Shown here is a 108-nucleotide RNA from Peptococcus niger, a member of the family "Glycine riboswitch aptamer". Taxonomically the source falls in Peptococcus (Bacteria, Bacillota, Clostridia, Eubacteriales).
Nucleotides: 108
Stems, first nucleotide, its partner, number of pairs: 007102001009100005019032004034088003037084002041082001043080001047075009
Number, partner (000 for none) and nucleotide at each position: 001000g002000g003000a004000u005000g006000a007102u008000g009100g010099u011098c012097u013096g014000g015000a016000g017000a018000a019032c020031u021030c022029a023000u024000u025000c026000a027000u028000u029022u030021g031020g032019g033000u034088a035087c036086c037084g038083a039000a040000g041082g042000u043080g044000a045000a046000a047075a048074u049073g050072c051071u052070u053069c054068u055067a056000g057000a058000u059000g060000u061000a062000g063000a064000u065000g066000a067055u068054a069053g070052a071051a072050g073049u074048g075047u076000g077000a078000a079000u080043c081000u082041c083038u084037c085000a086036g087035g088034u089000a090000a091000a092000a093000g094000g095000a096013c097012a098011g099010a100009c101000a102007g103000g104000a105000g106000c107000a108000a